A member of the RNA family "Lysine riboswitch aptamer" from Brevibacillus laterosporus, 185 nucleotides long. It scores 87 bits against the family's covariance model. The organism belongs to Brevibacillus laterosporus, within Bacteria.
[Rfam]
Nucleotides: 185
Stems, first nucleotide, its partner, number of pairs: 006180006016087005023080002032072008091118006098111001102110001119145011147170007
Number, partner (000 for none) and nucleotide at each position: 001000a002000u003000c004000c005000a006180a007179a008178a009177u010176a011175g012000a013000g014000g015000u016087g017086c018085g019084c020083a021000g022000c023080g024079g025000a026000u027000g028000a029000g030000u031000c032072a033071u034070c035069c036068u037067g038066u039065u040000u041000g042000c043000u044000u045000u046000a047000c048000a049000u050000c051000g052000c053000c054000g055000g056000g057000a058000c059000g060000a061000u062000g063000a064000g065039g066038a067037c068036a069035g070034g071033a072032u073000a074000a075000a076000a077000g078000g079024u080023c081000a082000a083020u084019g085018c086017g087016c088000c089000g090000a091118a092117g093116u094115c095114g096113u097000u098111g099000c100000u101000g102110a103000c104000c105000g106000g107000c108000a109000a110102u111098c112000u113096a114095c115094g116093g117092c118091u119145g120144g121143g122142g123141u124140g125139u126138a127137c128136g129135u130000g131000a132000a133000u134000a135129a136128c137127g138126u139125a140124c141123g142122u143121c144120u145119u146000g147170u148169c149168a150167u151166g152165a153164a154000a155000g156000g157000u158000g159000c160000g161000c162000c163000u164153u165152u166151c167150g168149u169148g170147g171000a172000g173000c174000g175011c176010u177009a178008u179007u180006u181000a182000u183000g184000a185000g